[Rfam]
RNA sequence: AUAACAAGUUACCAGCGACAAAUUCCCAGGCUGGGAAAAGUCAUAUACCAUAUGGUAUAUGACUAGCUGACUAACUGACC
Numbered sequence: 001a002u003a004a005c006a007a008g009u010u011a012c013c014a015g016c017g018a019c020a021a022a023u024u025c026c027c028a029g030g031c032u033g034g035g036a037a038a039a040g041u042c043a044u045a046u047a048c049c050a051u052a053u054g055g056u057a058u059a060u061g062a063c064u065a066g067c068u069g070a071c072u073a074a075c076u077g078a079c080c
Stems, first nucleotide, its partner, number of pairs: 007076004013069004023037004039064011
Shown here is an 80-nucleotide RNA sequence, a member of the family "DUF3800-II RNA".